[Rfam]
RNA sequence: UGUUGAGUGAUGAUAAAAAAUCAAUCGGAUUCCCAUUGAUAAUACAUGAGAUUACAACCAGCUACUUCUGACAACA
Dot-bracket structure: (((((..................................................................)))))
Overview:
Shown here is a 76-nucleotide RNA from Trifolium subterraneum, a member of the family "Small nucleolar RNA R12". The family's consensus secondary structure was predicted with PFOLD. Rfam links the family to the GO terms nucleolus and RNA processing. Lineage of the source: Eukaryota > Tracheophyta > Pentapetalae > Papilionoideae > Trifolium. A reference for the family is Chen et al. (2003), "The high diversity of snoRNAs in plants: identification and comparative study of 120 snoRNA genes from Oryza sativa", Nucleic Acids Res. The match comes from Rfam's covariance-model search (62 bits). snoR12 is a C/D box small nucleolar RNA, which acts as a methylation guide for 25S ribosomal RNA in plants. snoR12 has been alternatively named snoZ44 in Arabidopsis and snoZ131 in rice.